RNA sequence: GAAGGAGGAAUCCAAAGGGAUAGCAUGAUCCCAAUUCGGUAAAUAUAUGUACAGAAGACAAUAUAUAUGAGACUCGGGAUCAAUGCGAUCCCUUUGGAUGCUUCCUU
Numbered sequence: 001g002a003a004g005g006a007g008g009a010a011u012c013c014a015a016a017g018g019g020a021u022a023g024c025a026u027g028a029u030c031c032c033a034a035u036u037c038g039g040u041a042a043a044u045a046u047a048u049g050u051a052c053a054g055a056a057g058a059c060a061a062u063a064u065a066u067a068u069g070a071g072a073c074u075c076g077g078g079a080u081c082a083a084u085g086c087g088a089u090c091c092c093u094u095u096g097g098a099u100g101c102u103u104c105c106u107u
Stems, first nucleotide, its partner, number of pairs: 002107005008101001010099012023086003026082006
Dot-bracket structure: .(((((.(.((((((((((((.(((((((((.............................................)))))).))).)))))))))))).).)))))
The record is a 107-nucleotide RNA sequence from Centaurea solstitialis, which matches "mir-393 microRNA precursor family" in Rfam.